[Rfam]
RNA sequence: UCGUAAGUCGCUGCCCCGCACAUGCUGGCAGCGGCGAGCUUCGUAUACCCCGAAUGGGUUUGCGAGGUUUCACCAGAAAAAGGAA
Numbered sequence: 001u002c003g004u005a006a007g008u009c010g011c012u013g014c015c016c017c018g019c020a021c022a023u024g025c026u027g028g029c030a031g032c033g034g035c036g037a038g039c040u041u042c043g044u045a046u047a048c049c050c051c052g053a054a055u056g057g058g059u060u061u062g063c064g065a066g067g068u069u070u071c072a073c074c075a076g077a078a079a080a081a082g083g084a085a
Stems, first nucleotide, its partner, number of pairs: 007035009018025002036070009045060001047059004
RNA: gyrA RNA